[Rfam]
RNA sequence: CUUCAUUGAGUACCUAUAUGGCACCAUGUGUCUGAGCCACUAAGUGAUGCUGGUAGGACUGAGGAGCAGAGGAG
Numbered sequence: 001c002u003u004c005a006u007u008g009a010g011u012a013c014c015u016a017u018a019u020g021g022c023a024c025c026a027u028g029u030g031u032c033u034g035a036g037c038c039a040c041u042a043a044g045u046g047a048u049g050c051u052g053g054u055a056g057g058a059c060u061g062a063g064g065a066g067c068a069g070a071g072g073a074g
Stems, first nucleotide, its partner, number of pairs: 001074004
Source information: Rfam assigns this 74-nucleotide RNA from Electrophorus electricus to the family "Small nucleolar RNA SNORD66". Lineage of the source: Eukaryota > Actinopterygii > Clupeocephala > Gymnotoidei > Electrophorus. The family's RNA type in Rfam is C/D-box small nucleolar RNA. Its family is annotated with RNA processing and nucleolus in the Gene Ontology. On this family, see Huttenhofer et al., EMBO J 2001: "RNomics: an experimental approach that identifies 201 candidates for novel, small, non-messenger RNAs in mouse".